[Rfam]
RNA sequence: AAAUAUGCUUUCUAGGGUUCCGCAGAUAAUACAACUGGUCUGGUCCGAGAGAAAGCUCACAGCGCUUUGCUGUGUCACGGAAGGAUAAAAGCCUGGGAGAU
Numbered sequence: 001a002a003a004u005a006u007g008c009u010u011u012c013u014a015g016g017g018u019u020c021c022g023c024a025g026a027u028a029a030u031a032c033a034a035c036u037g038g039u040c041u042g043g044u045c046c047g048a049g050a051g052a053a054a055g056c057u058c059a060c061a062g063c064g065c066u067u068u069g070c071u072g073u074g075u076c077a078c079g080g081a082a083g084g085a086u087a088a089a090a091g092c093c094u095g096g097g098a099g100a101u
Base pairs, nucleotide, nucleotide: 007056008055009054010053011052012051015046016045020043021042022040023037024036025035027033058074059073060072061071062070063069076096078099082094083093084092
Guanidine-I riboswitch aptamer: a 101-nucleotide sequence from Bacillaceae bacterium SAS-127.
About the family: This family represents a conserved RNA structure found upstream of the ykkC and yxkD genes in Bacillus subtilis and related genes in other bacteria.
Pairs were carried over by alignment from the consensus structure.